Shown here is an 87-nucleotide sequence from Gossypium davidsonii, a member of the family "MIR7486 microRNA precursor family".
The organism belongs to Gossypium, within Eukaryota.
RNA sequence: UACGUCAGAGCGACCUAAUGACGUGGAAGGAAAUCGUGGUCUCAAGGACGCGAUUUCCUUCCACGUCAACAGGUCGCGCUGACGUGG
Dot-bracket structure: ((((((((.(((((((..(((.((((((((((((((((.((....)).)))))))))))))))).)))..))))))).)))))))).

Pairs were carried over by alignment from the consensus structure, which was predicted with RNAalifold. Gene Ontology terms of the family: RISC complex and miRNA-mediated post-transcriptional gene silencing.